[Rfam]
RNA sequence: UACCCUUGGAAAUCAAGUAUGGUUCUGGCCAGAUUCUAAAACAUGGCGACCCAUCCUUGGUUUCUUAGGUUC
Numbered sequence: 001u002a003c004c005c006u007u008g009g010a011a012a013u014c015a016a017g018u019a020u021g022g023u024u025c026u027g028g029c030c031a032g033a034u035u036c037u038a039a040a041a042c043a044u045g046g047c048g049a050c051c052c053a054u055c056c057u058u059g060g061u062u063u064c065u066u067a068g069g070u071u072c
Base pairs, nucleotide, nucleotide: 002071004069005068006067009064010063011062012061013060014059016057017056021052022051024049028047029046030045031044
Record summary: The family of this 72-nucleotide sequence from Muraenolepis orangiensis is "mir-551 microRNA precursor family". Gene Ontology terms of the family: miRNA-mediated post-transcriptional gene silencing and RISC complex. Lineage of the source: Eukaryota > Eumetazoa > Paracanthopterygii > Zeiogadaria > Muraenolepis.